[Rfam]
Background
The record is a 215-nucleotide sequence from Sporosarcina limicola, which matches "Bacillus sRNA ncr1575" in Rfam. By type it is a small RNA. A reference for the family is Irnov et al. (2010), "Identification of regulatory RNAs in Bacillus subtilis", Nucleic Acids Res. The base pairs follow the family's consensus structure, which is taken from published work. It scores 85 bits against the family's covariance model.

RNA sequence: AACUUAAAAGUGAAAGGGCUGAGGGUGGACGAUGAAGUACUAAUCUUGUAAUUCCGGGAAAGUGAAUUUUUUGUUCGAACGGAAAACAGGAUUGGUCUGUCCAUUUUAAGUAGUUUCCUUUCUCUUUGCGCAUGCAACGGGUUUUUUUGAGGAACUUUGAAAUCUGGAUAGUAUGAUGACUGAUCCUUCCGAUUAUCUUUCGGGGGGAUUUUUUA
Numbered sequence: 001a002a003c004u005u006a007a008a009a010g011u012g013a014a015a016g017g018g019c020u021g022a023g024g025g026u027g028g029a030c031g032a033u034g035a036a037g038u039a040c041u042a043a044u045c046u047u048g049u050a051a052u053u054c055c056g057g058g059a060a061a062g063u064g065a066a067u068u069u070u071u072u073g074u075u076c077g078a079a080c081g082g083a084a085a086a087c088a089g090g091a092u093u094g095g096u097c098u099g100u101c102c103a104u105u106u107u108a109a110g111u112a113g114u115u116u117c118c119u120u121u122c123u124c125u126u127u128g129c130g131c132a133u134g135c136a137a138c139g140g141g142u143u144u145u146u147u148u149g150a151g152g153a154a155c156u157u158u159g160a161a162a163u164c165u166g167g168a169u170a171g172u173a174u175g176a177u178g179a180c181u182g183a184u185c186c187u188u189c190c191g192a193u194u195a196u197c198u199u200u201c202g203g204g205g206g207g208a209u210u211u212u213u214u215a
Stems, first nucleotide, its partner, number of pairs: 016107003023102003028097003041094009052083002055077004060072003115161003123153006182210011